[Rfam]
mir-7385 microRNA precursor family: a 63-nucleotide RNA sequence from Monodelphis domestica. Gene Ontology terms of the family: RISC complex and miRNA-mediated post-transcriptional gene silencing. Rfam's curators put it in the seed alignment.
RNA sequence: AGGUCUGAUAGUCUAUCUUUUCAGUGCUCUUGGAAACCCUGGAAUAUAGUCUAUCAGAUCUGG
Numbered sequence: 001a002g003g004u005c006u007g008a009u010a011g012u013c014u015a016u017c018u019u020u021u022c023a024g025u026g027c028u029c030u031u032g033g034a035a036a037c038c039c040u041g042g043a044a045u046a047u048a049g050u051c052u053a054u055c056a057g058a059u060c061u062g063g
Stems, first nucleotide, its partner, number of pairs: 001061011013049004018044004